[Rfam]
RNA sequence: AAACAAUUGAAAGGAGGUGAUCCAGUGUCUCAUUGUCAUACGCCGCGCCUGACGGUCUCGACCUGGAUCUCCGCCGCCGCGGAGCUUUGCGCCUGACGAGGCGCAUCCGGGUCCUCGUCAGGACCGGGCAGACAAUGUGAAAGGCCGCCCUGCAAGGGGCGGCCUU
Numbered sequence: 001a002a003a004c005a006a007u008u009g010a011a012a013g014g015a016g017g018u019g020a021u022c023c024a025g026u027g028u029c030u031c032a033u034u035g036u037c038a039u040a041c042g043c044c045g046c047g048c049c050u051g052a053c054g055g056u057c058u059c060g061a062c063c064u065g066g067a068u069c070u071c072c073g074c075c076g077c078c079g080c081g082g083a084g085c086u087u088u089g090c091g092c093c094u095g096a097c098g099a100g101g102c103g104c105a106u107c108c109g110g111g112u113c114c115u116c117g118u119c120a121g122g123a124c125c126g127g128g129c130a131g132a133c134a135a136u137g138u139g140a141a142a143g144g145c146c147g148c149c150c151u152g153c154a155a156g157g158g159g160c161g162g163c164c165u166u
Stems, first nucleotide, its partner, number of pairs: 016023002031137007044060002047057001049055002061068001072100001075098002081093002084090001107127004141166011
Notes
Shown here is a 166-nucleotide RNA sequence from Alsobacter soli, a member of the family "caulobacter sRNA CC2171". Taxonomically the source falls in Alsobacter (Bacteria, Pseudomonadati, Alphaproteobacteria, Hyphomicrobiales). For this family Rfam cites "Small non-coding RNAs in Caulobacter crescentus" (Landt et al., Mol Microbiol, 2008). A search with the family's covariance model found it, with a score of 87 bits.